[Rfam]
RNA sequence: UGUGCCCCUUGAGGGGUUGCAGGUGUGGCUGCUGGGUCAUAUCUGCAUCACUAGGCAGCAGAGAGAAUCGAGGCUAUGUCUAGGCUCAGGAUUCCAACCCGUGAACACCUGAAUGAUUAGUAGCCUGACACG
Numbered sequence: 001u002g003u004g005c006c007c008c009u010u011g012a013g014g015g016g017u018u019g020c021a022g023g024u025g026u027g028g029c030u031g032c033u034g035g036g037u038c039a040u041a042u043c044u045g046c047a048u049c050a051c052u053a054g055g056c057a058g059c060a061g062a063g064a065g066a067a068u069c070g071a072g073g074c075u076a077u078g079u080c081u082a083g084g085c086u087c088a089g090g091a092u093u094c095c096a097a098c099c100c101g102u103g104a105a106c107a108c109c110u111g112a113a114u115g116a117u118u119a120g121u122a123g124c125c126u127g128a129c130a131c132g
Base pairs, nucleotide, nucleotide: 003060004059005058007055008054009053011051013049014048019046020045021044022043024041025040026039027038028037029036071126072125073124074123075122076121077120084114086112087111088110089109092105093104094103
Source information:
The family of this 132-nucleotide RNA from Chinchilla lanigera is "Small nucleolar RNA SNORA17". Its family is annotated with nucleolus and RNA processing in the Gene Ontology. The family is grouped with related families in Rfam's "SNORA17 clan". A reference for the family is Ofengand and Bakin (1997), "Mapping to nucleotide resolution of pseudouridine residues in large subunit ribosomal RNAs from representative eukaryotes, prokaryotes, archaebacteria, mitochondria and chloroplasts", J Mol Biol. Rfam describes the family as follows. snoRNA ACA 17 belongs to the H/ACA family of snoRNAs and is predicted to guide pseudouridylation of the 28S rRNA at positions U4659 and U4598.